The record is a 75-nucleotide sequence from Saccharopolyspora erythraea, which matches "6C RNA" in Rfam. Pairs were carried over by alignment from the consensus structure, which is taken from published work.

[Rfam]
RNA sequence: CCUGGUUCAGCUCGACCCCCCGGAGCUGAACCGCCGACGACCCCCGUCCCUCCCCCCUGGCGGGGGUCGUCUUGU
Numbered sequence: 001c002c003u004g005g006u007u008c009a010g011c012u013c014g015a016c017c018c019c020c021c022g023g024a025g026c027u028g029a030a031c032c033g034c035c036g037a038c039g040a041c042c043c044c045c046g047u048c049c050c051u052c053c054c055c056c057c058u059g060g061c062g063g064g065g066g067u068c069g070u071c072u073u074g075u
Stems, first nucleotide, its partner, number of pairs: 004032010036071013
Rfam classes the family as a cis-regulatory element. The literature on the family includes a 2007 paper in Nucleic Acids Res by Weinberg et al., "Identification of 22 candidate structured RNAs in bacteria using the CMfinder comparative genomics pipeline". Gene Ontology term of the family: sporulation.